[Rfam]
RNA: Ribosomal protein L19 leader
Organism: Ornithinibacillus halotolerans
RNA sequence: ACGAUGUUCCGCUGUUAUUUUAUAUAUUAUGAGCAUUGG
Numbered sequence: 001a002c003g004a005u006g007u008u009c010c011g012c013u014g015u016u017a018u019u020u021u022a023u024a025u026a027u028u029a030u031g032a033g034c035a036u037u038g039g
Stems, first nucleotide, its partner, number of pairs: 003037007013029002016026003